Source information: T-box leader: a 256-nucleotide sequence from Clostridium grantii. For this family Rfam cites "Interaction between the acceptor end of tRNA and the T box stimulates antitermination in the Bacillus subtilis tyrS gene: a new role for the discriminator base" (Grundy et al., J Bacteriol, 1994). The match comes from Rfam's covariance-model search (104 bits). Rfam's curators write: Uncharged tRNA acts as the effector for transcription antitermination of genes in the T-box leader family. T-boxes are found upstream of many aminoacyl-tRNA synthetase genes and some amino acid biosynthetic genes usually in Gram-positive bacteria.

[Rfam]
RNA sequence: UUUAAAGCUAUGAUAGAGAGAAAAAUGCUAUGUUUUAAUUUUAGAGAGCCAAUAAUUGCUGAAAAUUGGUAUUAAAGCUUGUAUAUAAUGAUCACUCUUGAGCAUCCUUACUGAAAAUAUAAAGUAAGCGAGGACGUUUGCCUACGAUAUAGGGUUAAAGUUUGUUUAAUUAAUGAUUACACAGAUUCUACAUUUAAGAUAUUUCAUUUGAAAUAUGAAGUAAGGUGGUACCACGGAUAUAACUUCCGUCCCUAUA
Numbered sequence: 001u002u003u004a005a006a007g008c009u010a011u012g013a014u015a016g017a018g019a020g021a022a023a024a025a026u027g028c029u030a031u032g033u034u035u036u037a038a039u040u041u042u043a044g045a046g047a048g049c050c051a052a053u054a055a056u057u058g059c060u061g062a063a064a065a066u067u068g069g070u071a072u073u074a075a076a077g078c079u080u081g082u083a084u085a086u087a088a089u090g091a092u093c094a095c096u097c098u099u100g101a102g103c104a105u106c107c108u109u110a111c112u113g114a115a116a117a118u119a120u121a122a123a124g125u126a127a128g129c130g131a132g133g134a135c136g137u138u139u140g141c142c143u144a145c146g147a148u149a150u151a152g153g154g155u156u157a158a159a160g161u162u163u164g165u166u167u168a169a170u171u172a173a174u175g176a177u178u179a180c181a182c183a184g185a186u187u188c189u190a191c192a193u194u195u196a197a198g199a200u201a202u203u204u205c206a207u208u209u210g211a212a213a214u215a216u217g218a219a220g221u222a223a224g225g226u227g228g229u230a231c232c233a234c235g236g237a238u239a240u241a242a243c244u245u246c247c248g249u250c251c252c253u254a255u256a
Stems, first nucleotide, its partner, number of pairs: 007103002015098004025084004037073003048070006106133004111128002135146003199216007222253001224251002233249005